[Rfam]
RNA sequence: AAGUGUCUUCGGGGCAGGGUGAAAUUCCCGAUUGGCGGUAAAGUCCGCGAGCGUUAAACGCAUGAUUUGGUGUAAUUCCAAAACCAACAGUAUAGUCUGGAUGAAAGAAGAUAGGA
Numbered sequence: 001a002a003g004u005g006u007c008u009u010c011g012g013g014g015c016a017g018g019g020u021g022a023a024a025u026u027c028c029c030g031a032u033u034g035g036c037g038g039u040a041a042a043g044u045c046c047g048c049g050a051g052c053g054u055u056a057a058a059c060g061c062a063u064g065a066u067u068u069g070g071u072g073u074a075a076u077u078c079c080a081a082a083a084c085c086a087a088c089a090g091u092a093u094a095g096u097c098u099g100g101a102u103g104a105a106a107g108a109a110g111a112u113a114g115g116a
Stems, first nucleotide, its partner, number of pairs: 004113007017029003031096002033086002035048004043084002066082005088099003
The family of this 116-nucleotide RNA from Eubacteriaceae bacterium CHKCI005 is "FMN riboswitch aptamer (RFN element)". The base pairs follow the family's consensus structure, which is taken from published work. The source organism's lineage runs through Bacteria, Bacillati, Bacillota, Eubacteriales and Eubacteriaceae. Gene Ontology term of the family: FMN binding. The literature on the family includes a 2020 paper in J Struct Biol X by Wilt et al., "FMN riboswitch aptamer symmetry facilitates conformational switching through mutually exclusive coaxial stacking configurations". A search with the family's covariance model found it, with a score of 113 bits.